[Rfam]
RNA sequence: UUUUCAUUCAGAGUGGCGAGAGAGAUUCGGCUCCACGACCGCCACGGCAACCUGCCCCUCGGCAAGGUGCCCAUGCCGACCCGCAAGGGAACGAUGUGGG
Numbered sequence: 001u002u003u004u005c006a007u008u009c010a011g012a013g014u015g016g017c018g019a020g021a022g023a024g025a026u027u028c029g030g031c032u033c034c035a036c037g038a039c040c041g042c043c044a045c046g047g048c049a050a051c052c053u054g055c056c057c058c059u060c061g062g063c064a065a066g067g068u069g070c071c072c073a074u075g076c077c078g079a080c081c082c083g084c085a086a087g088g089g090a091a092c093g094a095u096g097u098g099g100g
Stems, first nucleotide, its partner, number of pairs: 001100003005096004013045005022033003027079004046071004051067002053064004075092001080089003
A member of the RNA family "SAM riboswitch aptamer (S box leader)" from Paucidesulfovibrio gracilis, 100 nucleotides long.
A search with the family's covariance model found it, with a score of 54 bits.
From the family's description: The SAM riboswitch is found upstream of a number of genes which code for proteins involved in methionine or cysteine biosynthesis in Gram-positive bacteria.
Taxonomically the source falls in Paucidesulfovibrio gracilis (Bacteria, Pseudomonadati, Desulfovibrionales, Paucidesulfovibrio).